[Rfam]
RNA sequence: UCGAUUUUGGAAUCAAGAUGUCUUGGAAUCGAUUAAAUACAUUAUCCAGUAAUCAAGGGGUUCUCGAAUACUGGCGUAACGGAUCAAUUAGGCAAACGACGUAAUACGGCAGGUUAUAAGAAUAGCCACUUAUAUCCCUAGAAAAAGCCCAAUGAACCGCUUUUAAGCGGGUUUAUCAGGAAAGCUGAUAGAUAUACCUAAUUGAUUGUCAUCGACGGAGAGGGGCGCUUUAUAAGCGUAUCUGAUGGCACGUAGGG
Number, nucleotide and partner (000 for none) at each position: 001u032002c031003g030004a029005u028006u027007u026008u000009g000010g000011a000012a000013u000014c000015a000016a000017g000018a000019u000020g000021u000022c000023u000024u000025g000026g007027a006028a005029u004030c003031g002032a001033u000034u000035a000036a000037a000038u000039a000040c000041a000042u000043u000044a000045u000046c074047c073048a072049g071050u070051a000052a000053u000054c000055a000056a000057g000058g000059g000060g000061u000062u221063c220064u219065c218066g000067a000068a000069u000070a050071c049072u048073g047074g046075c000076g000077u000078a000079a000080c000081g000082g000083a206084u205085c204086a203087a202088u201089u200090a199091g198092g197093c000094a000095a000096a000097c000098g000099a000100c000101g000102u000103a000104a000105u000106a000107c000108g000109g000110c187111a186112g185113g000114u179115u000116a000117u000118a000119a000120g000121a000122a000123u000124a000125g000126c000127c000128a000129c000130u000131u000132a000133u000134a000135u000136c000137c000138c000139u000140a000141g000142a000143a000144a000145a000146a000147g000148c000149c000150c000151a000152a000153u000154g000155a000156a000157c000158c000159g000160c000161u000162u000163u000164u000165a000166a000167g000168c000169g000170g000171g000172u000173u000174u000175a000176u000177c000178a000179g114180g000181a000182a000183a000184g000185c112186u111187g110188a000189u000190a000191g000192a000193u000194a000195u000196a000197c092198c091199u090200a089201a088202u087203u086204g085205a084206u083207u250208g249209u248210c247211a246212u245213c000214g000215a000216c000217g000218g065219a064220g063221a062222g000223g000224g000225g239226c238227g237228c236229u235230u000231u000232a000233u000234a000235a229236g228237c227238g226239u225240a000241u000242c000243u000244g000245a212246u211247g210248g209249c208250a207251c000252g000253u000254a000255g000256g000257g000
A member of the RNA family "PAGEV RNA", 257 nucleotides long. Rfam's curators put it in the seed alignment.